[Rfam]
Rfam assigns this 189-nucleotide sequence from Dentipellis sp. KUC8613 to the family "U2 spliceosomal RNA". The organism belongs to Dentipellis, within Eukaryota. By type it is a spliceosomal small nuclear RNA. A search with the family's covariance model found it, with a score of 118 bits. Gene Ontology terms of the family: U2 snRNP, mRNA branch site recognition and pre-mRNA branch point binding. About the family: U2 is a small nuclear RNA (snRNA) component of the spliceosome (involved in pre-mRNA splicing). Complementary binding between U2 snRNA (in an area lying towards the 5' end but 3' to hairpin I) and the branchpoint sequence (BPS) of the intron results the bulging out of an unpaired adenosine, on the BPS, which initiates a nucleophilic attack at the intronic 5' splice site, thus starting the first of two transesterification reactions that mediate splicing.

RNA sequence: UUACCACUCUGGCCUUUUGGCUUAGAUCAAGUGUAGUAUCUGUUCUUAAUAGUUUAACCACUAUUAUGGGGGCACUGCCCCCAUUAUUGGUUAUCUAAUUUUUGCCGCCCUUGUCUCCCUGGCUCUGCUUGCAACCGGGGAGCGCGAUGACCUUGCCGCUGCAGUACAGGCUUGCGUCGUCGGGGGACU
Dot-bracket structure: .......(((((((....)))).)))....................((((((........))))))(((((((...)))))))...............................((((((((...((....)).))))))))..((((((.(..(((...........)))..)..)))))).......